[Rfam]
Saccharopolyspora sRNA 350: a 512-nucleotide sequence from Amycolatopsis sp. YIM 10.
The family has 2 seed sequences and 1,170 matches in Rfam 15.1.
By type it is an antisense RNA.
RNA sequence: UUGACGGUGAACUCCCAGAUGCCGUCGCCUUCGAGCAGCACCCGGUUGCCGAGGUGGUCCCCGUCGGCCAGCACGCCGAGCACGGUCGGGGCGCCGUACUCACUGGUGCCGAGCUUGUUCACCUUGCCGUGCGCGAUCAGCAGCACCUGGUCGGCCUGGUGGCCGAACUCGGUGAUCACGUCACCGGGGGUGUACUCCUGCUGGCGGAACCGGUCGGCGAUCCCGUUGAGGAUCUCGUUGUCCUCGGCGUCCUCGAAAUCGCGCAACUCGGGCAGCUCGCGCAGUUCCUGCGGGAUCACCCGGAUCUCGGACCCGGUGUUGGUGAAGGUGACACGACCGUCACCGACGGCGUAGCUCAGCCUGCGGUUCACCCGGUAGGAACCACCCGGCACCUCCACCCACGGCAGCAUCUUCAGCAGCCAGCGCGGCGAGAUGCCCUGCAUCUGCGGCACGGACUUGGUGGUGGUGGCGAGGUUCCGCGCGGCCGCGGUGCCGAGGCUCUGUUGCUUCGG
Numbered sequence: 001u002u003g004a005c006g007g008u009g010a011a012c013u014c015c016c017a018g019a020u021g022c023c024g025u026c027g028c029c030u031u032c033g034a035g036c037a038g039c040a041c042c043c044g045g046u047u048g049c050c051g052a053g054g055u056g057g058u059c060c061c062c063g064u065c066g067g068c069c070a071g072c073a074c075g076c077c078g079a080g081c082a083c084g085g086u087c088g089g090g091g092c093g094c095c096g097u098a099c100u101c102a103c104u105g106g107u108g109c110c111g112a113g114c115u116u117g118u119u120c121a122c123c124u125u126g127c128c129g130u131g132c133g134c135g136a137u138c139a140g141c142a143g144c145a146c147c148u149g150g151u152c153g154g155c156c157u158g159g160u161g162g163c164c165g166a167a168c169u170c171g172g173u174g175a176u177c178a179c180g181u182c183a184c185c186g187g188g189g190g191u192g193u194a195c196u197c198c199u200g201c202u203g204g205c206g207g208a209a210c211c212g213g214u215c216g217g218c219g220a221u222c223c224c225g226u227u228g229a230g231g232a233u234c235u236c237g238u239u240g241u242c243c244u245c246g247g248c249g250u251c252c253u254c255g256a257a258a259u260c261g262c263g264c265a266a267c268u269c270g271g272g273c274a275g276c277u278c279g280c281g282c283a284g285u286u287c288c289u290g291c292g293g294g295a296u297c298a299c300c301c302g303g304a305u306c307u308c309g310g311a312c313c314c315g316g317u318g319u320u321g322g323u324g325a326a327g328g329u330g331a332c333a334c335g336a337c338c339g340u341c342a343c344c345g346a347c348g349g350c351g352u353a354g355c356u357c358a359g360c361c362u363g364c365g366g367u368u369c370a371c372c373c374g375g376u377a378g379g380a381a382c383c384a385c386c387c388g389g390c391a392c393c394u395c396c397a398c399c400c401a402c403g404g405c406a407g408c409a410u411c412u413u414c415a416g417c418a419g420c421c422a423g424c425g426c427g428g429c430g431a432g433a434u435g436c437c438c439u440g441c442a443u444c445u446g447c448g449g450c451a452c453g454g455a456c457u458u459g460g461u462g463g464u465g466g467u468g469g470c471g472a473g474g475u476u477c478c479g480c481g482c483g484g485c486c487g488c489g490g491u492g493c494c495g496a497g498g499c500u501c502u503g504u505u506g507c508u509u510c511g512g
Stems, first nucleotide, its partner, number of pairs: 006399004011394001016389001018337001021334001025331005031325002036321007045314001049310004054236001057233004062225002065111004075103001078101003082097005117222001119220002122217002127212001129210002132206003136202001138200003143197001150191001155188006162177001166173001240305004249299002253295002260290002263287001265286003271278001338351004360388001363385001365383002371379002400440002403437004408432001410430001412427001414425001416424001446485002449482001452479004456474003460470002486511002491506001496505002